[Rfam]
RNA: c-di-AMP riboswitch aptamer (ydaO/yuaA leader)
Organism: Hazenella coriacea
RNA sequence: AUUCCAAAUUCGCUGAGUCCAUCUGGAGCGGGGGAACCAUUUUUGGGGUGAAUCCUGUGAACAUGAGCAGGUAGGGUUAUCUCUCAGUAAAGACCCGAAUCCGUCAGCUAACCUCGUAAGCGUUUCGAGAGAAGAGUG
Numbered sequence: 001a002u003u004c005c006a007a008a009u010u011c012g013c014u015g016a017g018u019c020c021a022u023c024u025g026g027a028g029c030g031g032g033g034g035a036a037c038c039a040u041u042u043u044u045g046g047g048g049u050g051a052a053u054c055c056u057g058u059g060a061a062c063a064u065g066a067g068c069a070g071g072u073a074g075g076g077u078u079a080u081c082u083c084u085c086a087g088u089a090a091a092g093a094c095c096c097g098a099a100u101c102c103g104u105c106a107g108c109u110a111a112c113c114u115c116g117u118a119a120g121c122g123u124u125u126c127g128a129g130a131g132a133a134g135a136g137u138g
Stems, first nucleotide, its partner, number of pairs: 011122004018027003028117006038045002046102003054071004074096004